[Rfam]
RNA: Histone 3' UTR stem-loop
RNA sequence: CCAAAGGCUCUUUUAAGAGCCACCCACACUUUCAUAAUAAGAGCUG
Numbered sequence: 001c002c003a004a005a006g007g008c009u010c011u012u013u014u015a016a017g018a019g020c021c022a023c024c025c026a027c028a029c030u031u032u033c034a035u036a037a038u039a040a041g042a043g044c045u046g
Base pairs, nucleotide, nucleotide: 006021007020008019009018010017011016